Shown here is a 297-nucleotide RNA from Medicago truncatula, a member of the family "MIR2619 microRNA precursor family". It scores 113 bits against the family's covariance model. Lineage of the source: Eukaryota > Tracheophyta > Pentapetalae > rosids > Medicago.
RNA sequence: UUUUGGCCCCAUAUGUUUUGCCUCUUUUGCACUUUUGGCCCCCUAGGCCAAUUUUGACCAAGUCAAUGCUGAUGUGGCGCCAUGUGUGUAAUUUUUUUUAUUUUUUUAAUCAUUAAAAGAAUAAAAAAAUACUUUUAAAAUUUUUUUAAUUAAAAAAAUAAAAUAAAAAAUACUUUUUUUUAUAAAAAAAAAAAAUAAUAAAAAAAUUACACACGUGGCGCCACGUCGGCAUUGACUUGGUCAAAAUUGGCCUAGGGGACCAAAAGUGCAAAGGAGGCAAAACAUAGGGGGCCAAAA
Numbered sequence: 001u002u003u004u005g006g007c008c009c010c011a012u013a014u015g016u017u018u019u020g021c022c023u024c025u026u027u028u029g030c031a032c033u034u035u036u037g038g039c040c041c042c043c044u045a046g047g048c049c050a051a052u053u054u055u056g057a058c059c060a061a062g063u064c065a066a067u068g069c070u071g072a073u074g075u076g077g078c079g080c081c082a083u084g085u086g087u088g089u090a091a092u093u094u095u096u097u098u099u100a101u102u103u104u105u106u107u108a109a110u111c112a113u114u115a116a117a118a119g120a121a122u123a124a125a126a127a128a129a130u131a132c133u134u135u136u137a138a139a140a141u142u143u144u145u146u147u148a149a150u151u152a153a154a155a156a157a158a159u160a161a162a163a164u165a166a167a168a169a170a171u172a173c174u175u176u177u178u179u180u181u182a183u184a185a186a187a188a189a190a191a192a193a194a195a196u197a198a199u200a201a202a203a204a205a206a207u208u209a210c211a212c213a214c215g216u217g218g219c220g221c222c223a224c225g226u227c228g229g230c231a232u233u234g235a236c237u238u239g240g241u242c243a244a245a246a247u248u249g250g251c252c253u254a255g256g257g258g259a260c261c262a263a264a265a266g267u268g269c270a271a272a273g274g275a276g277g278c279a280a281a282a283c284a285u286a287g288g289g290g291g292c293c294a295a296a297a
Stems, first nucleotide, its partner, number of pairs: 001297002004294005012286027040258006072226002075223024